RNA sequence: CUUGAGCGAGUGAUAGCAGCGGCAUCCUUUUUUUUGUUGCACUUAUGCAAAAAAAAAGAUAUAGCGGAUAGCACAGUUUUUA
Numbered sequence: 001c002u003u004g005a006g007c008g009a010g011u012g013a014u015a016g017c018a019g020c021g022g023c024a025u026c027c028u029u030u031u032u033u034u035u036g037u038u039g040c041a042c043u044u045a046u047g048c049a050a051a052a053a054a055a056a057a058g059a060u061a062u063a064g065c066g067g068a069u070a071g072c073a074c075a076g077u078u079u080u081u082a
Stems, first nucleotide, its partner, number of pairs: 010074003014070002019065002024060003030055005035049002

The record is an 82-nucleotide sequence from Lacinutrix sp. Bg11-31, which matches "Flavo-1 RNA" in Rfam.